Annotation:
This 61-nucleotide sequence from Pristionchus pacificus belongs to the Rfam family "mir-8364 microRNA precursor family". Pairs were carried over by alignment from the consensus structure, which was predicted with RNAalifold.
RNA sequence: UCUUCAUUUCACGUGCUCACUCACCGGCCCGAGAGGCGAGAGAGUGUGCGAAAUGAGGAGA
Numbered sequence: 001u002c003u004u005c006a007u008u009u010c011a012c013g014u015g016c017u018c019a020c021u022c023a024c025c026g027g028c029c030c031g032a033g034a035g036g037c038g039a040g041a042g043a044g045u046g047u048g049c050g051a052a053a054u055g056a057g058g059a060g061a
Base pairs, nucleotide, nucleotide: 001059002058003057004056005055006054007053010050012048013047014046015045016044017043020040021039022038

Annotation:
Lineage of the source: Eukaryota > Nematoda > Chromadorea > Neodiplogasteridae > Pristionchus.